[Rfam]
RNA sequence: CAGUAGAUGCACCCUGAUCAAUAAUCCCUCAGCUUUUGCUGGGGGAUUUUUUU
Dot-bracket structure: ..((......)).............((((((((....))))))))........
Numbered sequence: 001c002a003g004u005a006g007a008u009g010c011a012c013c014c015u016g017a018u019c020a021a022u023a024a025u026c027c028c029u030c031a032g033c034u035u036u037u038g039c040u041g042g043g044g045g046a047u048u049u050u051u052u053u
Stems, first nucleotide, its partner, number of pairs: 003012002026045008
The record is a 53-nucleotide RNA sequence from Limnoraphis robusta, which matches "Nitrogen stress-induced RNA 1" in Rfam. The source organism's lineage runs through Bacteria, Cyanophyceae, Oscillatoriophycideae, Limnoraphis and Limnoraphis robusta. The pairing is the family consensus, mapped onto this sequence. Rfam classes the family as a small RNA.